RNA sequence: CGUGAAAUUAACCAUUCAUUAAUCUUAAUCGCGUUAACUGCUUUACAUCCAGUUCGGCUGGAUUCUUACCGAGUGGUGAAGCCACUCUGUUUGACGCCUCCCUGUUAAACUCCUGAGAGCCGCCUUUGCGGCUCUUUUUUU
Numbered sequence: 001c002g003u004g005a006a007a008u009u010a011a012c013c014a015u016u017c018a019u020u021a022a023u024c025u026u027a028a029u030c031g032c033g034u035u036a037a038c039u040g041c042u043u044u045a046c047a048u049c050c051a052g053u054u055c056g057g058c059u060g061g062a063u064u065c066u067u068a069c070c071g072a073g074u075g076g077u078g079a080a081g082c083c084a085c086u087c088u089g090u091u092u093g094a095c096g097c098c099u100c101c102c103u104g105u106u107a108a109a110c111u112c113c114u115g116a117g118a119g120c121c122g123c124c125u126u127u128g129c130g131g132c133u134c135u136u137u138u139u140u141u
Stems, first nucleotide, its partner, number of pairs: 001040001003014002015037002021034001024031001047063004071087006093106004115136009
Dot-bracket structure: (.((........))((....(..(......)..).))..)......((((.........)))).......((((((.....)))))).....((((......))))........(((((((((....))))))))).....
Alphaproteobacterial sRNA BjrC1505: a 141-nucleotide RNA from Brucella gallinifaecis. The pairing is the family consensus, mapped onto this sequence. On this family, see Madhugiri et al., RNA Biol 2012: "Small RNAs of the Bradyrhizobium/Rhodopseudomonas lineage and their analysis". NCBI's taxonomy places the organism under Bacteria, Pseudomonadota, Alphaproteobacteria, Brucellaceae, Brucella.